[Rfam]
RNA sequence: UGUCUCCUCCAACUCUCCUUGAAUUGGAUUUAGCCCGCGAAUGCAAAUUUCGCGGGCUUUUUUUU
Numbered sequence: 001u002g003u004c005u006c007c008u009c010c011a012a013c014u015c016u017c018c019u020u021g022a023a024u025u026g027g028a029u030u031u032a033g034c035c036c037g038c039g040a041a042u043g044c045a046a047a048u049u050u051c052g053c054g055g056g057c058u059u060u061u062u063u064u065u
Base pairs, nucleotide, nucleotide: 008028009027010026011025012024014022015021032058033057034056035055036054037053038052039051
Dot-bracket structure: .......(((((.((.....)).)))))...((((((((...........)))))))).......

Rfam assigns this 65-nucleotide sequence from Noviherbaspirillum galbum to the family "Betaproteobacteria toxic small RNA". A search with the family's covariance model found it, with a score of 63 bits. A reference for the family is Kimelman et al. (2012), "A vast collection of microbial genes that are toxic to bacteria", Genome Res. Pairs were carried over by alignment from the consensus structure, which was predicted with WAR.